[Rfam]
A member of the RNA family "Bacterial RNase P class A" from Zavarzinia aquatilis, 396 nucleotides long. It scores 300 bits against the family's covariance model.
RNA sequence: UCAGAUGGCCGGGUGACCGCCGCCGCGUUUCGCGGGGGAGGAAAGUCCGGGCUCCACGGAGACAGGGUGCCGGGUAACGCCCGGCGAAGGUAACUUCAGGGACAGUGCCACAGAGAGCAGACCGCCGGAACGCCGGGCGAAAGUCCGGCCGGCCGGCAAGGGUGAAAGGGUGCGGUAAGAGCGCACCGCGCUGACGGUAACGCCAGCGGCAUGGUAAACCCCACCCGGAGCAAAACCAAAUAGGGGCGGCAGGCGGGCGCGAGCCCGCGGGAUCUGUUUCCGGUCCGUCGCCCGGGUCGGUUGCUUGAGACGGCCGGCAACGGUCGUCCUAGAGGAAUGGUCACCCGUCGCGGGCAACCGCGGCGACAGAACCCGGCUUACAGGCCAUCUGACAUC
Numbered sequence: 001u002c003a004g005a006u007g008g009c010c011g012g013g014u015g016a017c018c019g020c021c022g023c024c025g026c027g028u029u030u031c032g033c034g035g036g037g038g039a040g041g042a043a044a045g046u047c048c049g050g051g052c053u054c055c056a057c058g059g060a061g062a063c064a065g066g067g068u069g070c071c072g073g074g075u076a077a078c079g080c081c082c083g084g085c086g087a088a089g090g091u092a093a094c095u096u097c098a099g100g101g102a103c104a105g106u107g108c109c110a111c112a113g114a115g116a117g118c119a120g121a122c123c124g125c126c127g128g129a130a131c132g133c134c135g136g137g138c139g140a141a142a143g144u145c146c147g148g149c150c151g152g153c154c155g156g157c158a159a160g161g162g163u164g165a166a167a168g169g170g171u172g173c174g175g176u177a178a179g180a181g182c183g184c185a186c187c188g189c190g191c192u193g194a195c196g197g198u199a200a201c202g203c204c205a206g207c208g209g210c211a212u213g214g215u216a217a218a219c220c221c222c223a224c225c226c227g228g229a230g231c232a233a234a235a236c237c238a239a240a241u242a243g244g245g246g247c248g249g250c251a252g253g254c255g256g257g258c259g260c261g262a263g264c265c266c267g268c269g270g271g272a273u274c275u276g277u278u279u280c281c282g283g284u285c286c287g288u289c290g291c292c293c294g295g296g297u298c299g300g301u302u303g304c305u306u307g308a309g310a311c312g313g314c315c316g317g318c319a320a321c322g323g324u325c326g327u328c329c330u331a332g333a334g335g336a337a338u339g340g341u342c343a344c345c346c347g348u349c350g351c352g353g354g355c356a357a358c359c360g361c362g363g364c365g366a367c368a369g370a371a372c373c374c375g376g377c378u379u380a381c382a383g384g385c386c387a388u389c390u391g392a393c394a395u396c
Stems, first nucleotide, its partner, number of pairs: 001392010011381001012345007020038002023035005043379003047376005052230004060279004065226005070084005085099001086097004100221002105219002107215003122161002124157005132149007169187006188210001189208005195202002234302004244293006270286005309328008